[Rfam]
RNA sequence: AAAAAGGGCUUCUGUCGUGAGUGGCACACGUAGAGCAGCUUGAUUGCUCUACGUGUGGAAUCGACAUCAAGAGAUUUCGGAAGCUUUUUUUCGGAGAGGUGACCUUGGUUAAAACACAUGGCGCCAA
Numbered sequence: 001a002a003a004a005a006g007g008g009c010u011u012c013u014g015u016c017g018u019g020a021g022u023g024g025c026a027c028a029c030g031u032a033g034a035g036c037a038g039c040u041u042g043a044u045u046g047c048u049c050u051a052c053g054u055g056u057g058g059a060a061u062c063g064a065c066a067u068c069a070a071g072a073g074a075u076u077u078c079g080g081a082a083g084c085u086u087u088u089u090u091u092c093g094g095a096g097a098g099g100u101g102a103c104c105u106u107g108g109u110u111a112a113a114a115c116a117c118a119u120g121g122c123g124c125c126a127a
Stems, first nucleotide, its partner, number of pairs: 008084005013026005027055012056079007098125004103121002106118002109116001

This 127-nucleotide sequence from Myotis lucifugus belongs to the Rfam family "U11 spliceosomal RNA". It scores 86 bits against the family's covariance model. Lineage of the source: Eukaryota > Craniata > Gnathostomata > Dipnotetrapodomorpha > Myotis.